[Rfam]
Nucleotides: 098
Stems, first nucleotide, its partner, number of pairs: 016043005022037001029057005063085007
Number, partner (000 for none) and nucleotide at each position: 001000a002000a003000a004000c005000g006000u007000a008000a009000a010000g011000u012000u013000g014000a015000a016043c017042u018041c019040c020039c021000c022037g023000c024000a025000a026000a027000c028000c029057a030056a031055g032054a033053c034000c035000u036000c037022u038000a039020g040019g041018g042017a043016g044000u045000a046000u047000a048000a049000a050000a051000a052000c053033g054032u055031c056030u057029u058000u059000c060000a061000u062000a063085c064084c065083u066082c067081a068080g069079g070000c071000a072000g073000a074000g075000g076000g077000u078000g079069c080068c081067u082066g083065a084064g085063g086000a087000a088000u089000a090000g091000u092000a093000a094000c095000u096000c097000c098000a
The record is a 98-nucleotide RNA sequence from Synechococcus phage S-BM3, which matches "PhotoRC-II RNA" in Rfam.